[Rfam]
RNA sequence: UGGCUACAAAAUAACUUAUUUUGUAGUCACUUUAAGUUACGAUAAUUAUUAUGUUAAUUUACGAGAUUAUAGUAACUCCUUACUAAGUAGUUUACUAUAACGUUACGGUAAAUAAUUCCAUGUGUUAUAAUAACAUAAUUAUCGUAAAUAUGUAUUCACUUUAUCGUAAAUUAAGUAUAAAAAUUAUCGUCAAUAGAGGUAGCUACAGAAUAACUUAUUCUAUAACUA
Numbered sequence: 001u002g003g004c005u006a007c008a009a010a011a012u013a014a015c016u017u018a019u020u021u022u023g024u025a026g027u028c029a030c031u032u033u034a035a036g037u038u039a040c041g042a043u044a045a046u047u048a049u050u051a052u053g054u055u056a057a058u059u060u061a062c063g064a065g066a067u068u069a070u071a072g073u074a075a076c077u078c079c080u081u082a083c084u085a086a087g088u089a090g091u092u093u094a095c096u097a098u099a100a101c102g103u104u105a106c107g108g109u110a111a112a113u114a115a116u117u118c119c120a121u122g123u124g125u126u127a128u129a130a131u132a133a134c135a136u137a138a139u140u141a142u143c144g145u146a147a148a149u150a151u152g153u154a155u156u157c158a159c160u161u162u163a164u165c166g167u168a169a170a171u172u173a174a175g176u177a178u179a180a181a182a183a184u185u186a187u188c189g190u191c192a193a194u195a196g197a198g199g200u201a202g203c204u205a206c207a208g209a210a211u212a213a214c215u216u217a218u219u220c221u222a223u224a225a226c227u228a
Stems, first nucleotide, its partner, number of pairs: 001228003005224002008221001010219005016213012029200005037192001039190009050179005055173008065165003069161001072157001074155001080147004087142006093132002096129008107117002

Background: The record is a 228-nucleotide RNA sequence from Miscanthus lutarioriparius, which matches "MIR6217 microRNA precursor family" in Rfam. Pairs were carried over by alignment from the consensus structure, which was predicted with RNAalifold. Taxonomically the source falls in Miscanthus (Eukaryota, Magnoliopsida, Poales, Panicoideae). The match comes from Rfam's covariance-model search (145 bits).